RNA sequence: AAUCUGAUAAUAUUAAAUUGUAGUUAUUUAGUAACUACAAAGUCUUUUAUAUUCAUGAACAUAAUACUCCUGGAUGGCGUAACCCAGCGCCAUCCUUUUUUAU
Numbered sequence: 001a002a003u004c005u006g007a008u009a010a011u012a013u014u015a016a017a018u019u020g021u022a023g024u025u026a027u028u029u030a031g032u033a034a035c036u037a038c039a040a041a042g043u044c045u046u047u048u049a050u051a052u053u054c055a056u057g058a059a060c061a062u063a064a065u066a067c068u069c070c071u072g073g074a075u076g077g078c079g080u081a082a083c084c085c086a087g088c089g090c091c092a093u094c095c096u097u098u099u100u101u102a103u
Stems, first nucleotide, its partner, number of pairs: 003058002005055003010052004015047003019039008072095008
The family of this 103-nucleotide RNA sequence from Staphylococcus epidermidis is "Staphylococcus sRNA71 small RNA". Gene Ontology term of the family: mRNA binding. From the family's description: sRNA71 is a Bacterial small RNA discovered by RNA-seq analysis of the multiresistant Staphylococcus aureus strain ST239 grown in the presence of antibiotics and found throughout the Staphylococcus genus. A reference for the family is Howden et al. (2013), "Analysis of the small RNA transcriptional response in multidrug-resistant Staphylococcus aureus after antimicrobial exposure", Antimicrob Agents Chemother.